[Rfam]
RNA: mir-145 microRNA precursor family
RNA sequence: UCCUCGCUCCCGGGGUCCAGUUUUCCCAGGAAUCCCUUGGAGAAAAGGAACGGGGAUUCCUGGAAAUACUGUUCUUGGGGGUAAGGC
Numbered sequence: 001u002c003c004u005c006g007c008u009c010c011c012g013g014g015g016u017c018c019a020g021u022u023u024u025c026c027c028a029g030g031a032a033u034c035c036c037u038u039g040g041a042g043a044a045a046a047g048g049a050a051c052g053g054g055g056a057u058u059c060c061u062g063g064a065a066a067u068a069c070u071g072u073u074c075u076u077g078g079g080g081g082u083a084a085g086g087c
Stems, first nucleotide, its partner, number of pairs: 018071004023066002026063012